[Rfam]
RNA sequence: GUGAAUAUAUCGCUGAAUUCUUUUUUAAAAGAGCGGGGGAACCAAUCACAGGGGUGAAUCCUUUUAAUAGGAUGGGCAAACCUUAGUCCUAAUCCGACAGCUAACCUCGUAAGCGAAUUUAAGGUGGCGUU
Numbered sequence: 001g002u003g004a005a006u007a008u009a010u011c012g013c014u015g016a017a018u019u020c021u022u023u024u025u026u027a028a029a030a031g032a033g034c035g036g037g038g039g040a041a042c043c044a045a046u047c048a049c050a051g052g053g054g055u056g057a058a059u060c061c062u063u064u065u066a067a068u069a070g071g072a073u074g075g076g077c078a079a080a081c082c083u084u085a086g087u088c089c090u091a092a093u094c095c096g097a098c099a100g101c102u103a104a105c106c107u108c109g110u111a112a113g114c115g116a117a118u119u120u121a122a123g124g125u126g127g128c129g130u131u
Base pairs, nucleotide, nucleotide: 011115012114013113014112018032019031033110034109035108036107037106038105043051052095053094054093060071061070062069074089075088076087077086

Shown here is a 131-nucleotide RNA from Paratissierella segnis, a member of the family "c-di-AMP riboswitch aptamer (ydaO/yuaA leader)". From the family's description: This family represents a conserved RNA structure found upstream of the ydaO and yuaA genes in Bacillus subtilis and related genes in other bacteria. The source organism's lineage runs through Bacteria, Bacillota, Tissierellales, Tissierellaceae and Paratissierella.